[Rfam]
Nucleotides: 082
Base pairs, nucleotide, nucleotide: 016074017073018072019071020070024050025049026048028043029042030041031040032039056069057068
Number, partner (000 for none) and nucleotide at each position: 001000a002000a003000g004000g005000u006000u007000u008000a009000c010000a011000a012000a013000g014000a015000a016074u017073u018072c019071c020070c021000g022000a023000u024050a025049g026048g027000a028043c029042g030041g031040c032039c033000a034000c035000a036000a037000c038000c039032g040031g041030u042029c043028g044000g045000a046000a047000g048026c049025c050024u051000u052000g053000u054000a055000a056069c057068c058000g059000a060000g061000a062000a063000a064000a065000u066000a067000a068057g069056g070020g071019g072018g073017a074016a075000u076000a077000a078000u079000a080000a081000u082000g